[Rfam]
RNA sequence: UCUCACGCGGGAAGCUCUGACGCGCGGCCCACACCCUGGUCGCCGAGACCACGCCGAGCCACUGGCGAGACCGACCCGCGCGAUG
Numbered sequence: 001u002c003u004c005a006c007g008c009g010g011g012a013a014g015c016u017c018u019g020a021c022g023c024g025c026g027g028c029c030c031a032c033a034c035c036c037u038g039g040u041c042g043c044c045g046a047g048a049c050c051a052c053g054c055c056g057a058g059c060c061a062c063u064g065g066c067g068a069g070a071c072c073g074a075c076c077c078g079c080g081c082g083a084u085g
Stems, first nucleotide, its partner, number of pairs: 001085001003083002006080006014059002022054003026050002029047001038072002040068005
RNA: c-di-GMP-II-GAG riboswitch aptamer